The family of this 61-nucleotide RNA from Pristionchus pacificus is "mir-8364 microRNA precursor family". A search with the family's covariance model found it, with a score of 68 bits. The organism belongs to Pristionchus, within Eukaryota.
RNA sequence: UCUUCAUUUCUCGUGCUAUCUCAUCGGUCAGAGUGACGAGAGAGUGUGUUUAAUGAAGAGA
Numbered sequence: 001u002c003u004u005c006a007u008u009u010c011u012c013g014u015g016c017u018a019u020c021u022c023a024u025c026g027g028u029c030a031g032a033g034u035g036a037c038g039a040g041a042g043a044g045u046g047u048g049u050u051u052a053a054u055g056a057a058g059a060g061a
Stems, first nucleotide, its partner, number of pairs: 001059007012048006019041004